RNA: U12 minor spliceosomal RNA
RNA sequence: AUGCCUUAAACUUAUGAUUAAGAAAAAUAAUGAUUCAGGGUGACACUUGAAUGCUAAUGUGAGAUGAAUUUUUGAGCUGAUAAAGGUGGCCCCUAAGUGACCUGCAUACUUUGCUGGAUCCUGGGAGUCGCCAUCUGCCCC
Number, nucleotide and partner (000 for none) at each position: 001a000002u000003g000004c000005c022006u021007u020008a019009a000010a000011c000012u000013u000014a000015u000016g000017a000018u000019u008020a007021a006022g005023a000024a000025a000026a000027a000028u000029a000030a000031u000032g000033a052034u051035u050036c049037a048038g047039g046040g000041u000042g000043a000044c000045a000046c039047u038048u037049g036050a035051a034052u033053g000054c063055u062056a000057a000058u000059g000060u000061g000062a055063g054064a000065u000066g000067a000068a000069u000070u000071u000072u000073u000074g000075a000076g000077c000078u000079g139080a000081u137082a000083a000084a136085g135086g134087u133088g132089g131090c130091c000092c000093c125094u124095a000096a122097g121098u000099g119100a000101c117102c116103u000104g114105c113106a000107u000108a000109c000110u000111u000112u000113g105114c104115u000116g102117g101118a000119u099120c000121c097122u096123g000124g094125g093126a000127g000128u000129c000130g090131c089132c088133a087134u086135c085136u084137g081138c000139c079140c000141c000